[Rfam]
RNA sequence: GCCUAUGACGAUGUUAUCCAAUUAAUUGAGAUGCAGUGGAACUGAGACCCUGUUCGCAGGGAGAACCCCUUGGGGAAACUGCAUUCAUAUGACAAUAGUGGAUCUAACUGAGGC
Numbered sequence: 001g002c003c004u005a006u007g008a009c010g011a012u013g014u015u016a017u018c019c020a021a022u023u024a025a026u027u028g029a030g031a032u033g034c035a036g037u038g039g040a041a042c043u044g045a046g047a048c049c050c051u052g053u054u055c056g057c058a059g060g061g062a063g064a065a066c067c068c069c070u071u072g073g074g075g076a077a078a079c080u081g082c083a084u085u086c087a088u089a090u091g092a093c094a095a096u097a098g099u100g101g102a103u104c105u106a107a108c109u110g111a112g113g114c
Base pairs, nucleotide, nucleotide: 001114002113003112048061049060050059051058052057
The record is a 114-nucleotide RNA sequence from Papaver somniferum, which matches "Small nucleolar RNA Z278" in Rfam. Rfam links the family to the GO terms nucleolus and RNA processing. Rfam's curators write: snoZ278 is a C/D box small nucleolar RNA. Its methylation guide targets have not been reported. Taxonomically the source falls in Papaver (Eukaryota, Viridiplantae, Embryophyta, Papaveraceae). A reference for the family is Chen et al. (2003), "The high diversity of snoRNAs in plants: identification and comparative study of 120 snoRNA genes from Oryza sativa", Nucleic Acids Res. The base pairs follow the family's consensus structure, which was predicted with PFOLD.